[Rfam]
RNA sequence: AGUGCCUAUUUCUUUGUCAUCCCAGUGCCCAGACACUGGGAUCCAGAAAAGUUUGCUUGUAAGCAAGCAAACUAGCAUAGGAAAACGUUUUCGAUGAGAUUAUAUGGAAAACUGGAUUCCAGCGUCACGCGCUGGAAUGACAACAUUUUCGGUCUCUU
Numbered sequence: 001a002g003u004g005c006c007u008a009u010u011u012c013u014u015u016g017u018c019a020u021c022c023c024a025g026u027g028c029c030c031a032g033a034c035a036c037u038g039g040g041a042u043c044c045a046g047a048a049a050a051g052u053u054u055g056c057u058u059g060u061a062a063g064c065a066a067g068c069a070a071a072c073u074a075g076c077a078u079a080g081g082a083a084a085a086c087g088u089u090u091u092c093g094a095u096g097a098g099a100u101u102a103u104a105u106g107g108a109a110a111a112c113u114g115g116a117u118u119c120c121a122g123c124g125u126c127a128c129g130c131g132c133u134g135g136a137a138u139g140a141c142a143a144c145a146u147u148u149u150c151g152g153u154c155u156c157u158u
Base pairs, nucleotide, nucleotide: 004153005152006151015142016141017140018139019138020137022135023134024133025132026131027130028129032126033125034124036122037121038120039119040118041117042116043115044114045113046112
This 158-nucleotide RNA sequence from Trichonephila clavata belongs to the Rfam family "Wolbachia sRNA 46".
The base pairs follow the family's consensus structure.
A reference for the family is Mayoral et al. (2014), "Wolbachia small noncoding RNAs and their role in cross-kingdom communications", Proc Natl Acad Sci U S A.
A search with the family's covariance model found it, with a score of 69 bits.
It is annotated as a small RNA.